Shown here is a 149-nucleotide RNA from Clostridium acetobutylicum, a member of the family "TPP riboswitch aptamer (THI element)".
The source organism's lineage runs through Bacteria, Bacillota, Eubacteriales, Clostridiaceae and Clostridium acetobutylicum.
The base pairs follow the family's consensus structure, which is taken from published work.
A search with the family's covariance model found it, with a score of 63 bits.
Its family is annotated with thiamine pyrophosphate binding in the Gene Ontology.

RNA sequence: UAUUUUAGCUAGGGGUGCCUUUUAAGGCUUUUAUAGUUGAUAUCAUUAAAAAUAUUUAACUAAUAAAAGACUUUAGGCUGAGAGGAGAAAUCCAACCCUUUGAACUUGAUGUAGUUAAUACUACCGUAGGGAAGCAGUGCAUUGUAUAU
Numbered sequence: 001u002a003u004u005u006u007a008g009c010u011a012g013g014g015g016u017g018c019c020u021u022u023u024a025a026g027g028c029u030u031u032u033a034u035a036g037u038u039g040a041u042a043u044c045a046u047u048a049a050a051a052a053u054a055u056u057u058a059a060c061u062a063a064u065a066a067a068a069g070a071c072u073u074u075a076g077g078c079u080g081a082g083a084g085g086a087g088a089a090a091u092c093c094a095a096c097c098c099u100u101u102g103a104a105c106u107u108g109a110u111g112u113a114g115u116u117a118a119u120a121c122u123a124c125c126g127u128a129g130g131g132a133a134g135c136a137g138u139g140c141a142u143u144g145u146a147u148a149u
Base pairs, nucleotide, nucleotide: 006137008135009134010133011099012098013097014096017078018077019076020075085092086091105130106129107128108127111124112123113122114121